Background
The family of this 395-nucleotide RNA sequence from Pseudomonas oryzae is "Pseudomonas sRNA CrcZ". The source organism's lineage runs through Bacteria, Gammaproteobacteria, Pseudomonadales, Pseudomonadaceae and Pseudomonas. Rfam classes the family as a small RNA. The family's consensus secondary structure was predicted with WAR. For this family Rfam cites "Identification of 17 Pseudomonas aeruginosa sRNAs and prediction of sRNA-encoding genes in 10 diverse pathogens using the bioinformatic tool sRNAPredict2" (Livny et al., Nucleic Acids Res, 2006).
RNA sequence: ACAACAAAAACAAUAACGCUGAACCCACACAACAAAAACAAGACGUAACGACUCCAUAACAACAAGAACAACAGGAUGGAGGCGCAGCAAACCGAUUCUUUUGGAGAGGAGUUGCCCCAAGGGGUUCUCCCCGCGACCGGACCGAGAACGAUAAAACUGCCCCGAGGCAGCGGCCAGCACCGGUAAGACCCGCAAGGGUGGCGGCAACGUCAGCGUCCAAAAGAAUAUGCUUGCUCUUGAGGUCCCGCCUUGGGACUACCACCGGACCCUGGGUCCGGACGGGCUGCCAAAAACAACAACAAGCUCGUCAGCACAACAAGAACAAAGCAUGACCGACUGAAGGGGGAGCCAAUGGCUCCCCCUUGUGCUUUGCGCCUUCCAGAGCCCGCGUGUUG
Numbered sequence: 001a002c003a004a005c006a007a008a009a010a011c012a013a014u015a016a017c018g019c020u021g022a023a024c025c026c027a028c029a030c031a032a033c034a035a036a037a038a039c040a041a042g043a044c045g046u047a048a049c050g051a052c053u054c055c056a057u058a059a060c061a062a063c064a065a066g067a068a069c070a071a072c073a074g075g076a077u078g079g080a081g082g083c084g085c086a087g088c089a090a091a092c093c094g095a096u097u098c099u100u101u102u103g104g105a106g107a108g109g110a111g112u113u114g115c116c117c118c119a120a121g122g123g124g125u126u127c128u129c130c131c132c133g134c135g136a137c138c139g140g141a142c143c144g145a146g147a148a149c150g151a152u153a154a155a156a157c158u159g160c161c162c163c164g165a166g167g168c169a170g171c172g173g174c175c176a177g178c179a180c181c182g183g184u185a186a187g188a189c190c191c192g193c194a195a196g197g198g199u200g201g202c203g204g205c206a207a208c209g210u211c212a213g214c215g216u217c218c219a220a221a222a223g224a225a226u227a228u229g230c231u232u233g234c235u236c237u238u239g240a241g242g243u244c245c246c247g248c249c250u251u252g253g254g255a256c257u258a259c260c261a262c263c264g265g266a267c268c269c270u271g272g273g274u275c276c277g278g279a280c281g282g283g284c285u286g287c288c289a290a291a292a293a294c295a296a297c298a299a300c301a302a303g304c305u306c307g308u309c310a311g312c313a314c315a316a317c318a319a320g321a322a323c324a325a326a327g328c329a330u331g332a333c334c335g336a337c338u339g340a341a342g343g344g345g346g347a348g349c350c351a352a353u354g355g356c357u358c359c360c361c362c363u364u365g366u367g368c369u370u371u372g373c374g375c376c377u378u379c380c381a382g383a384g385c386c387c388g389c390g391u392g393u394u395g
Base pairs, nucleotide, nucleotide: 049084050083052081053080054079055078099222100221101220102219103218113215114214115213136184137183138182139181140180157170158169159168160167161166240257242256243255244254245253277376278375281306282305283304284303325370326369327368328367342362343361344360345359346358347357348356349355